[Rfam]
RNA: Small nucleolar RNA SNORD113/SNORD114 family
RNA sequence: UGGUUCAGUGUUGACUACUGGUGUCGUGUGAGUCAUACAAUGAAUACAUGUCUGGAACUCUGAGGCCCAU
Numbered sequence: 001u002g003g004u005u006c007a008g009u010g011u012u013g014a015c016u017a018c019u020g021g022u023g024u025c026g027u028g029u030g031a032g033u034c035a036u037a038c039a040a041u042g043a044a045u046a047c048a049u050g051u052c053u054g055g056a057a058c059u060c061u062g063a064g065g066c067c068c069a070u
Stems, first nucleotide, its partner, number of pairs: 002068002005065002
Dot-bracket structure: .((.((.........................................................)).))..